[Rfam]
Rfam assigns this 144-nucleotide RNA sequence from Aureimonas sp. AU20 to the family "Alphaproteobacterial sRNA ar45". It scores 115 bits against the family's covariance model.

RNA sequence: GCCCAAUGUCGCACGUGCCUGUGGGCGUCCCCCGGUCCUUCGAAUGCGAAGAUCACCGGGUCGGUCACUGGAGUUUAGUCUCCAGGUCGGUUUCGCUGCUGGCGAAAUCGUGGACGCCUUGAAGCAACGACGGUGCGGGCCUUU
Numbered sequence: 001g002c003c004c005a006a007u008g009u010c011g012c013a014c015g016u017g018c019c020u021g022u023g024g025g026c027g028u029c030c031c032c033c034g035g036u037c038c039u040u041c042g043a044a045u046g047c048g049a050a051g052a053u054c055a056c057c058g059g060g061u062c063g064g065u066c067a068c069u070g071g072a073g074u075u076u077a078g079u080c081u082c083c084a085g086g087u088c089g090g091u092u093u094c095g096c097u098g099c100u101g102g103c104g105a106a107a108u109c110g111u112g113g114a115c116g117c118c119u120u121g122a123a124g125c126a127a128c129g130a131c132g133g134u135g136c137g138g139g140c141c142u143u144u
Base pairs, nucleotide, nucleotide: 001140002139003138004137008131009130010129011128016126017125018124023119024118025117026116027115028114029113030112031060032059033058034057035056038051039050040049041048068085069084070083071082072081088110089109090108093105094104095103096102097101